[Rfam]
RNA sequence: UCAUACAGUUAUUAAGGGAGGCUCCUUUACAAAUACACGCUGCUGCCCGGAAAUGUCGAGAGACGCCAACGGGUCGAACAGGUCUUUUCGCCAAGGAAAGACAUAAUGCAGCUACCUCACGUUACGUUGUAAAGUGCUGAAACUCAAUAGAAAGUAUCGGU
Dot-bracket structure: ....(.(.(((([.((...(((..((((((((......(((((.(((((....((((....))))....))))).......(((..(((....])))..))).....))))).((.....))....)))))))).)))....))..))...)).).)....
Overview: A member of the RNA family "M-box riboswitch aptamer (ykoK leader)" from Aedoeadaptatus ivorii, 161 nucleotides long. Rfam's curators write: M-box riboswitch, also know as ykoK leader is described as a metaloregulatory RNA that sense divalent metals and function as a genetic control element of genes related to divalent metal transport in bacteria. It was first reported upstream of the B.subtilis ykoK gene and genes with related functions in other bacteria.